[Rfam]
RNA sequence: AAAGAGGAUGUGAGACUUAGCAUUUCCUGUCUGAUACCAUCUUCCUAGAUUUAAUGUGCCAUUUUUUCUUGCCGAACUAUUAGAUAGUUUUGUUGUAAGAGAAAUGGAUUAUGA
Numbered sequence: 001a002a003a004g005a006g007g008a009u010g011u012g013a014g015a016c017u018u019a020g021c022a023u024u025u026c027c028u029g030u031c032u033g034a035u036a037c038c039a040u041c042u043u044c045c046u047a048g049a050u051u052u053a054a055u056g057u058g059c060c061a062u063u064u065u066u067u068c069u070u071g072c073c074g075a076a077c078u079a080u081u082a083g084a085u086a087g088u089u090u091u092g093u094u095g096u097a098a099g100a101g102a103a104a105u106g107g108a109u110u111a112u113g114a
Stems, first nucleotide, its partner, number of pairs: 001032001003030001005028001006025006057114001067100006074093001076088003

Shown here is a 114-nucleotide sequence from Zizania palustris, a member of the family "Small nucleolar RNA snoR104". Rfam links the family to the GO terms nucleolus and RNA processing.